[Rfam]
RNA sequence: UGAUCAGUAAGGCUACUGGCUAUAUUCCAGGACUCAUCUGGUCCUGGGUAUAACCAAAGCAUGACUAUACG
Number, nucleotide and partner (000 for none) at each position: 001u000002g000003a000004u000005c000006a000007g065008u064009a000010a000011g000012g060013c059014u058015a000016c000017u056018g055019g054020c000021u052022a051023u050024a049025u000026u000027c041028c040029a039030g038031g037032a000033c000034u000035c000036a000037u031038c030039u029040g028041g027042u000043c000044c000045u000046g000047g000048g000049u024050a023051u022052a021053a000054c019055c018056a017057a000058a014059g013060c012061a000062u000063g000064a008065c007066u000067a000068u000069a000070c000071g000
Source information: Rfam assigns this 71-nucleotide sequence from Rattus norvegicus to the family "mir-344 microRNA precursor family". Rfam links the family to the GO terms miRNA-mediated post-transcriptional gene silencing and RISC complex. Taxonomically the source falls in Rattus (Eukaryota, Chordata, Sarcopterygii, Boreoeutheria). For this family Rfam cites "Mammalian microRNAs: experimental evaluation of novel and previously annotated genes" (Chiang et al., Genes Dev, 2010).